[Rfam]
RNA sequence: CGUGCACCCAAACCCAAAGCGCACGCCGGCUCAGUGGUGUGCUUUUGUGUGGCGUGCCAACAUGAACGUGAUCCCUGUCGCCUUUCACGACUGCCGUGUCUCUGAAAGUGAAACCAGGGGUCUACAAGU
Number, nucleotide and partner (000 for none) at each position: 001c000002g000003u000004g057005c056006a055007c054008c000009c052010a000011a000012a000013c000014c000015c000016a000017a000018a000019g044020c000021g042022c041023a040024c039025g038026c037027c036028g035029g000030c000031u000032c000033a000034g000035u028036g027037g026038u025039g024040u023041g022042c021043u000044u019045u000046u000047g000048u000049g000050u000051g000052g009053c000054g007055u006056g005057c004058c000059a000060a000061c000062a000063u000064g000065a000066a000067c000068g000069u000070g122071a121072u120073c119074c118075c117076u116077g000078u000079c000080g000081c000082c108083u107084u106085u105086c104087a103088c000089g100090a099091c098092u000093g000094c000095c000096g000097u000098g091099u090100c089101u000102c000103u087104g086105a085106a084107a083108g082109u000110g000111a000112a000113a000114c000115c000116a076117g075118g074119g073120g072121u071122c070123u000124a000125c000126a000127a000128g000129u000

The record is a 129-nucleotide RNA from Gasterosteus aculeatus, which matches "Small nucleolar RNA SNORA68" in Rfam. The family's RNA type in Rfam is H/ACA-box small nucleolar RNA. The organism belongs to Gasterosteus, within Eukaryota. From the family's description: U68 is a member of the H/ACA class of small nucleolar RNAs (snoRNAs) which act as guides in the the modification of uridines to pseudouridines. On this family, see Ganot et al., Genes Dev 1997: "The family of box ACA small nucleolar RNAs is defined by an evolutionarily conserved secondary structure and ubiquitous sequence elements essential for RNA accumulation". Rfam links the family to the GO terms nucleolus and RNA processing.